About this RNA:
Shown here is a 98-nucleotide RNA, a member of the family "DUF3800-V RNA". By type it is a small RNA. Pairs were carried over by alignment from the consensus structure, which is taken from published work.

[Rfam]
RNA sequence: UAGUAUUGAGCGGUAAGUCCGUUGUAGGUUCCUCCAGUGUUUCCAUCCAUAGGUUGGCCAAGCUGGAGGGGUCCAAGCUUGCACGGCGCGCUCUUUUG
Numbered sequence: 001u002a003g004u005a006u007u008g009a010g011c012g013g014u015a016a017g018u019c020c021g022u023u024g025u026a027g028g029u030u031c032c033u034c035c036a037g038u039g040u041u042u043c044c045a046u047c048c049a050u051a052g053g054u055u056g057g058c059c060a061a062g063c064u065g066g067a068g069g070g071g072u073c074c075a076a077g078c079u080u081g082c083a084c085g086g087c088g089c090g091c092u093c094u095u096u097u098g
Stems, first nucleotide, its partner, number of pairs: 001098003005094001010091002025081006032068007043057003047053002